Glycine riboswitch aptamer: an 88-nucleotide sequence from Teichococcus rhizosphaerae.
RNA sequence: CCCAAUCCCGCGGGAGAGAGAGGCCACCGCCUCCGCCGAAGGCGCAAGCUCCCAUAAUCGCUCAGGCAGGUCGAACCGCGGGAGCGUC
Number, nucleotide and partner (000 for none) at each position: 001c000002c000003c000004a000005a000006u083007c082008c081009c080010g079011c078012g077013g076014g000015a000016g000017a000018g000019a000020g033021a032022g031023g030024c000025c000026a000027c000028c000029g000030c023031c022032u021033c020034c000035g067036c066037c065038g063039a062040a000041g000042g061043c060044g059045c000046a000047a000048g055049c000050u000051c000052c000053c000054a000055u048056a000057a000058u000059c044060g043061c042062u039063c038064a000065g037066g036067c035068a000069g000070g000071u000072c000073g000074a000075a000076c013077c012078g011079c010080g009081g008082g007083a006084g000085c000086g000087u000088c000
Notes
Pairs were carried over by alignment from the consensus structure.